[Rfam]
RNA sequence: UAGCUUUAGCUGGUUGAAACCGGGUCAAAUUUUUUAUUUACUAUUUGGUCCCCUUCAACCAGCUGUGGUUG
Numbered sequence: 001u002a003g004c005u006u007u008a009g010c011u012g013g014u015u016g017a018a019a020c021c022g023g024g025u026c027a028a029a030u031u032u033u034u035u036a037u038u039u040a041c042u043a044u045u046u047g048g049u050c051c052c053c054u055u056c057a058a059c060c061a062g063c064u065g066u067g068g069u070u071g
Base pairs, nucleotide, nucleotide: 003069004068005067008064009063010062011061012060013059014058015057016056017055018054022050023049025048026047027046028045029044030043

Annotation
The family of this 71-nucleotide RNA from Psylliodes chrysocephalus is "mir-133 microRNA precursor family". About the family: mir-133 was first experimentally characterised in mouse and homologues have since been discovered in several other species. The mature sequence is excised from the 3' arm of the hairpin. The source organism's lineage runs through Eukaryota, Protostomia, Insecta, Chrysomelidae and Psylliodes. A search with the family's covariance model found it, with a score of 64 bits.